This 225-nucleotide RNA sequence from Fulvivirga sediminis belongs to the Rfam family "Group II catalytic intron D1-D4-3". The source organism's lineage runs through Bacteria, Bacteroidota, Cytophagia, Fulvivirgaceae and Fulvivirga.
RNA sequence: UCAUCGGUGACGAUGGAACUUAAGAAAUGCAAAGCAUUCAUGAAUACCUUUAAAAUAAAACACGCAUGAAUAAAGCCAGACUGCGGUGUCUGAACUGAAGAACAUGAACCACAUACAGAGGCUAUGAGGCCGGAUGAGGUAACACAUGCUGCCGGGUUCCAACUCCUCGAAAGAGGCUAGUGCCGAAAUAGUAGAUGUGGCUGCGAUAGCCACAAGCAUAUUCAC
Numbered sequence: 001u002c003a004u005c006g007g008u009g010a011c012g013a014u015g016g017a018a019c020u021u022a023a024g025a026a027a028u029g030c031a032a033a034g035c036a037u038u039c040a041u042g043a044a045u046a047c048c049u050u051u052a053a054a055a056u057a058a059a060a061c062a063c064g065c066a067u068g069a070a071u072a073a074a075g076c077c078a079g080a081c082u083g084c085g086g087u088g089u090c091u092g093a094a095c096u097g098a099a100g101a102a103c104a105u106g107a108a109c110c111a112c113a114u115a116c117a118g119a120g121g122c123u124a125u126g127a128g129g130c131c132g133g134a135u136g137a138g139g140u141a142a143c144a145c146a147u148g149c150u151g152c153c154g155g156g157u158u159c160c161a162a163c164u165c166c167u168c169g170a171a172a173g174a175g176g177c178u179a180g181u182g183c184c185g186a187a188a189u190a191g192u193a194g195a196u197g198u199g200g201c202u203g204c205g206a207u208a209g210c211c212a213c214a215a216g217c218a219u220a221u222u223c224a225c
Stems, first nucleotide, its partner, number of pairs: 001016006075225001078222002082218002087212002090209003095203001097201001109200006121192003125187001128184003132160003138153004